Description
The family of this 92-nucleotide RNA from Roseovarius albus is "Rhodo-rpoB RNA". The family's RNA type in Rfam is cis-regulatory element. NCBI's taxonomy places the organism under Bacteria, Pseudomonadati, Pseudomonadota, Rhodobacterales, Roseovarius. Pairs were carried over by alignment from the consensus structure, which is taken from published work.
[Rfam]
RNA sequence: UGAUCGGGAGGCUUCUGGUGGGACAGGGGCCGGGAAUGGAUCAAACCCGCUGUCUCGGAUGGUUACGGUGUCGGAGCCCGACGACAUGCGUA
Numbered sequence: 001u002g003a004u005c006g007g008g009a010g011g012c013u014u015c016u017g018g019u020g021g022g023a024c025a026g027g028g029g030c031c032g033g034g035a036a037u038g039g040a041u042c043a044a045a046c047c048c049g050c051u052g053u054c055u056c057g058g059a060u061g062g063u064u065a066c067g068g069u070g071u072c073g074g075a076g077c078c079c080g081a082c083g084a085c086a087u088g089c090g091u092a
Stems, first nucleotide, its partner, number of pairs: 001043005010031008064092004069086005